[Rfam]
RNA sequence: AAAACGGCCCUUUUCAGGGCCACCAAUUGCAUAAUAAUCUAAAAUU
Numbered sequence: 001a002a003a004a005c006g007g008c009c010c011u012u013u014u015c016a017g018g019g020c021c022a023c024c025a026a027u028u029g030c031a032u033a034a035u036a037a038u039c040u041a042a043a044a045u046u
Base pairs, nucleotide, nucleotide: 006021007020008019009018010017011016
RNA: Histone 3' UTR stem-loop